[Rfam]
RNA: RAGATH-18 RNA
Organism: Mageeibacillus indolicus
RNA sequence: ACUGUGGAGUGUACAAGAACUUGUGAGUAGCGAAUUGUUUACAAUCGCCAAAGCAUACACAUUGAAGCAGUAA
Numbered sequence: 001a002c003u004g005u006g007g008a009g010u011g012u013a014c015a016a017g018a019a020c021u022u023g024u025g026a027g028u029a030g031c032g033a034a035u036u037g038u039u040u041a042c043a044a045u046c047g048c049c050a051a052a053g054c055a056u057a058c059a060c061a062u063u064g065a066a067g068c069a070g071u072a073a
Stems, first nucleotide, its partner, number of pairs: 001071005009060005022055003030048003034045002